About this RNA
The record is an 86-nucleotide RNA from Saccoglossus kowalevskii, which matches "mir-4841 microRNA precursor family" in Rfam. The base pairs follow the family's consensus structure, which was predicted with RNAalifold. It is one of the family's seed sequences. Taxonomically the source falls in Saccoglossus (Eukaryota, Bilateria, Hemichordata, Enteropneusta).
RNA sequence: AUGGAAAUGACGUUUUGUGAUAGUUGUCUUAUUCUCCUGCUGAAAAAACCGAGAAUAAGUCCACUGUUGCACCAAGUCAUUUUCAA
Dot-bracket structure: ...((((((((.(..(((((((((.(.(((((((((..............))))))))).).)))))))))..).))))))))...
Numbered sequence: 001a002u003g004g005a006a007a008u009g010a011c012g013u014u015u016u017g018u019g020a021u022a023g024u025u026g027u028c029u030u031a032u033u034c035u036c037c038u039g040c041u042g043a044a045a046a047a048a049c050c051g052a053g054a055a056u057a058a059g060u061c062c063a064c065u066g067u068u069g070c071a072c073c074a075a076g077u078c079a080u081u082u083u084c085a086a
Stems, first nucleotide, its partner, number of pairs: 004083008013074001016071009026061001028059009